RNA sequence: GUUCACCUGUGAGUGGAUUGUGUUCGGUACCAAGGACAGGCAUGUCCACCUGUGUGUGGAGGGUGUUUAGUGCCAAGGACAGGUGUGCUUAACU
Numbered sequence: 001g002u003u004c005a006c007c008u009g010u011g012a013g014u015g016g017a018u019u020g021u022g023u024u025c026g027g028u029a030c031c032a033a034g035g036a037c038a039g040g041c042a043u044g045u046c047c048a049c050c051u052g053u054g055u056g057u058g059g060a061g062g063g064u065g066u067u068u069a070g071u072g073c074c075a076a077g078g079a080c081a082g083g084u085g086u087g088c089u090u091a092a093c094u
Base pairs, nucleotide, nucleotide: 004085005084006083007082008081009080010079018075020073021072022071023070024069026067027066028065029064030063031062034055036053037052038051039050040049
RNA: mir-2060 microRNA precursor family